[Rfam]
This 134-nucleotide sequence from Vibrio cholerae belongs to the Rfam family "Histidine operon leader". NCBI's taxonomy places the organism under Bacteria, Gammaproteobacteria, Vibrionales, Vibrio, Vibrio cholerae. Rfam classes the family as a cis-regulatory leader. A reference for the family is Kolter and Yanofsky (1982), "Attenuation in amino acid biosynthetic operons", Annu Rev Genet. About the family: At least 6 amino acid operons are known to be regulated by attenuation. In each a leader sequence of 150-200 bp is found upstream of the first gene in the operon. This leader sequence can assume two different secondary structures known as the terminator and the anti-terminator structure. In each case the leader also codes for very short peptide sequence that is rich in the end product amino acid of the operon.

RNA sequence: UCAUCACCAUCAUCAUCCCUAAGGUGUCUUUCGGGAGAUGUACGCAUACCCGGGGGACAGGAAUCUCCCGGAGUUGAAAUCAGAGCCAUAAAAAGAUUCUAACCCUCGGGAGACCAAACCUCCCGAGGGUUUUU
Numbered sequence: 001u002c003a004u005c006a007c008c009a010u011c012a013u014c015a016u017c018c019c020u021a022a023g024g025u026g027u028c029u030u031u032c033g034g035g036a037g038a039u040g041u042a043c044g045c046a047u048a049c050c051c052g053g054g055g056g057a058c059a060g061g062a063a064u065c066u067c068c069c070g071g072a073g074u075u076g077a078a079a080u081c082a083g084a085g086c087c088a089u090a091a092a093a094a095g096a097u098u099c100u101a102a103c104c105c106u107c108g109g110g111a112g113a114c115c116a117a118a119c120c121u122c123c124c125g126a127g128g129g130u131u132u133u134u
Stems, first nucleotide, its partner, number of pairs: 009047002011040004017035003021031001049071002052069006101131012